[Rfam]
RNA sequence: CGUUAAUCUCAGGGCGGGGUGAAAGUCCCCACCGGCGGUAGAUAUCUGAUUUAUUAAGAUAAAGCCCGCGAGCGCUUUGUGUUGCGAUAGCAAUGCUUAGGUCAGCAGAUCCAGUGUGAUUCUGGAGCCGACAGUUAAAGUCUGGAUGGGAGAGAAUAAAA
Number, nucleotide and partner (000 for none) at each position: 001c000002g000003u159004u158005a157006a000007u155008c154009u153010c152011a000012g000013g000014g000015c000016g000017g029018g028019g027020u000021g000022a000023a000024a000025g000026u000027c019028c018029c017030c000031a141032c140033c130034g129035g069036c068037g067038g066039u000040a000041g000042a000043u000044a000045u000046c000047u000048g000049a000050u000051u000052u000053a000054u000055u000056a000057a000058g000059a000060u000061a000062a000063a000064g128065c127066c038067c037068g036069c035070g000071a000072g106073c105074g000075c000076u000077u000078u000079g000080u000081g000082u000083u000084g000085c000086g000087a000088u000089a000090g000091c000092a000093a000094u000095g000096c000097u000098u000099a000100g000101g000102u000103c000104a000105g073106c072107a000108g000109a000110u126111c125112c124113a123114g122115u000116g000117u000118g000119a000120u000121u000122c114123u113124g112125g111126a110127g065128c064129c034130g033131a000132c144133a143134g142135u000136u000137a000138a000139a000140g032141u031142c134143u133144g132145g000146a000147u000148g000149g000150g000151a000152g010153a009154g008155a007156a000157u005158a004159a003160a000161a000
RNA: FMN riboswitch aptamer (RFN element)